[Rfam]
RNA sequence: AUUAGUUACUGAUACCGAACACGGGCGUCGAGGAAACUCAACGCCCGUGUGUUUAUGUCAAGGGUAAUCAGAAUGGC
Numbered sequence: 001a002u003u004a005g006u007u008a009c010u011g012a013u014a015c016c017g018a019a020c021a022c023g024g025g026c027g028u029c030g031a032g033g034a035a036a037c038u039c040a041a042c043g044c045c046c047g048u049g050u051g052u053u054u055a056u057g058u059c060a061a062g063g064g065u066a067a068u069c070a071g072a073a074u075g076g077c
Base pairs, nucleotide, nucleotide: 003018005015019050020049021048022047023046024045025044026043027042030039031038032037
A member of the RNA family "tpke11" from Proteus myxofaciens, 77 nucleotides long. Rfam links the family to the GO term response to temperature stimulus. On this family, see Rivas et al., Curr Biol 2001: "Computational identification of noncoding RNAs in E. coli by comparative genomics". The family's RNA type in Rfam is small RNA. The organism belongs to Proteus myxofaciens, within Bacteria.